[Rfam]
Shown here is a 96-nucleotide RNA, a member of the family "PhotoRC-II RNA". It is annotated as a cis-regulatory element. The base pairs follow the family's consensus structure, which is taken from published work.

RNA sequence: AAAAUGUUCUGGACACCCCGUAAACCAAGACCUCUAGGGUGUAUAAAUACGUCUUUCAUACCCACGCCCGAGGGUGGUGUGGGAAUAGUAAAACCG
Dot-bracket structure: .............(((((..((....[[[[[...))))))).........]]]]].....(((((((.........))))))).............
Numbered sequence: 001a002a003a004a005u006g007u008u009c010u011g012g013a014c015a016c017c018c019c020g021u022a023a024a025c026c027a028a029g030a031c032c033u034c035u036a037g038g039g040u041g042u043a044u045a046a047a048u049a050c051g052u053c054u055u056u057c058a059u060a061c062c063c064a065c066g067c068c069c070g071a072g073g074g075u076g077g078u079g080u081g082g083g084a085a086u087a088g089u090a091a092a093a094c095c096g
Stems, first nucleotide, its partner, number of pairs: 014041005021036002027055005061083007